[Rfam]
RNA sequence: GCGUGCCGAUGAUGAUGCAAAAGCAUCGGUGAAUUCUGGAUGAGUGUGCCCGCGCACGACCAGUGUGCGGCUCUGGUGAUAUCCACAGCGUAAUACUCUGAGGCACCC
Dot-bracket structure: ..(((((..............................................................................................)))))..
Numbered sequence: 001g002c003g004u005g006c007c008g009a010u011g012a013u014g015a016u017g018c019a020a021a022a023g024c025a026u027c028g029g030u031g032a033a034u035u036c037u038g039g040a041u042g043a044g045u046g047u048g049c050c051c052g053c054g055c056a057c058g059a060c061c062a063g064u065g066u067g068c069g070g071c072u073c074u075g076g077u078g079a080u081a082u083c084c085a086c087a088g089c090g091u092a093a094u095a096c097u098c099u100g101a102g103g104c105a106c107c108c
Stems, first nucleotide, its partner, number of pairs: 003106005